RNA sequence: GGCCGCGUGGCCCAAUGGAUAAGGCGUCGGUCUACGGAACCGAAGAUUCCAGGUUCGAUCCCUGGCGUGGUCA
Dot-bracket structure: (((((((..(((..........))).(((((.......))))).....(((((.......)))))))))))).